[Rfam]
RNA sequence: GUCGGCUACGGAGACAUGUCGCCAACGACCGUCGGGGGGAAGGUGGUGGGGUCCUUGUGCGCCAUCGCCGGGGUGCUGACCAUCUCACUGCCUGUCCCAGUGAUCGUGUCCAAU
Numbered sequence: 001g002u003c004g005g006c007u008a009c010g011g012a013g014a015c016a017u018g019u020c021g022c023c024a025a026c027g028a029c030c031g032u033c034g035g036g037g038g039g040a041a042g043g044u045g046g047u048g049g050g051g052u053c054c055u056u057g058u059g060c061g062c063c064a065u066c067g068c069c070g071g072g073g074u075g076c077u078g079a080c081c082a083u084c085u086c087a088c089u090g091c092c093u094g095u096c097c098c099a100g101u102g103a104u105c106g107u108g109u110c111c112a113a114u
Stems, first nucleotide, its partner, number of pairs: 001114002004111002007108005014101002018097001021095002037077002040074001049063002
RNA: Potassium channel RNA editing signal
Organism: Acipenser ruthenus